[Rfam]
Nucleotides: 459
Base pairs, nucleotide, nucleotide: 001455002454003453004452006450007449008448009447010446011444012395013394014393015392016391017390018389020062021061023059024058026056028054068441069440071439072438073437074436075435076262077261078260079259083329084328085327086326088258089257090256091255092254093107094106095105096104097103108122109120110119111118112117123253124252128251129250130247131246132245144192145191146188147187148186149185150184151183152182154180200218201217202216203215204214205213220242221240222239223238224237225236226235227234228233266352267351268350269349276342277341279339321333322332323331324330359378360377361376362375363374364373365372366371
Number, partner (000 for none) and nucleotide at each position: 001455c002454g003453a004452g005000a006450g007449g008448g009447u010446c011444g012395g013394g014393u015392g016391a017390u018389c019000g020062c021061g022000c023059c024058c025000a026056c027000c028054g029000g030000a031000a032000c033000c034000g035000c036000a037000c038000c039000g040000u041000c042000a043000g044000c045000a046000g047000g048000u049000g050000a051000a052000g053000g054028c055000c056026g057000g058024g059023g060000u061021c062020g063000a064000g065000g066000a067000a068441a069440g070000u071439c072438c073437g074436g075435a076262c077261u078260c079259c080000u081000c082000a083329g084328a085327g086326c087000a088258c089257g090256g091255u092254g093107g094106u095105u096104g097103u098000u099000a100000a101000c102000g103097g104096c105095a106094a107093c108122c109120c110119g111118g112117g113000g114000u115000g116000a117112c118111c119110c120109g121000c122108g123253g124252g125000c126000a127000a128251g129250u130247g131246c132245c133000a134000c135000a136000g137000a138000g139000a140000a141000u142000a143000a144192c145191c146188g147187c148186c149185c150184g151183g152182a153000g154180a155000c156000g157000c158000c159000c160000g161000g162000a163000c164000c165000u166000g167000u168000g169000u170000c171000c172000g173000g174000a175000u176000g177000c178000u179000c180154u181000g182152u183151c184150c185149g186148g187147g188146u189000a190000a191145g192144g193000g194000u195000g196000a197000a198000a199000a200218g201217g202216u203215g204214c205213g206000g207000u208000a209000a210000g211000a212000g213205c214204g215203c216202a217201c218200c219000a220242g221240u222239g223238u224237g225236c226235c227234g228233g229000g230000u231000g232000a233228c234227c235226g236225g237224u238223g239222c240221a241000g242220c243000u244000g245132g246131g247130u248000a249000a250129a251128c252124c253123c254092c255091a256090c257089c258088g259079g260078g261077a262076g263000c264000a265000a266352g267351g268350u269349c270000a271000c272000g273000u274000g275000g276342u277341c278000g279339c280000a281000c282000c283000g284000u285000a286000a287000c288000c289000c290000c291000g292000u293000c294000a295000g296000g297000g298000g299000c300000c301000g302000g303000u304000g305000g306000u307000g308000c309000g310000a311000c312000g313000u314000g315000c316000c317000c318000c319000g320000a321333c322332g323331g324330c325000u326086g327085c328084u329083c330324g331323u332322c333321g334000g335000a336000c337000a338000a339279g340000g341277g342276g343000c344000a345000g346000g347000u348000a349269g350268a351267c352266c353000g354000c355000u356000g357000g358000a359378g360377g361376c362375g363374g364373c365372c366371g367000g368000u369000g370000a371366c372365g373364g374363u375362c376361g377360u378359c379000g380000u381000a382000g383000a384000u385000g386000g387000a388000u389018g390017a391016u392015c393014a394013c395012c396000a397000c398000c399000a400000c401000c402000c403000g404000g405000g406000u407000a408000c409000c410000u411000g412000a413000g414000g415000g416000u417000g418000c419000c420000c421000c422000g423000g424000g425000c426000g427000g428000u429000a430000c431000a432000g433000a434000a435075u436074c437073c438072g439071g440069c441068u442000c443000a444011c445000a446010g447009a448008c449007c450006c451000c452004c453003u454002c455001g456000a457000c458000a459000c
Source information: Shown here is a 459-nucleotide RNA sequence from Corynebacterium provencense, a member of the family "Bacterial RNase P class A". The family's consensus secondary structure is taken from published work. Rfam classes the family as a ribozyme. NCBI's taxonomy places the organism under Bacteria, Bacillati, Actinomycetota, Corynebacteriaceae, Corynebacterium.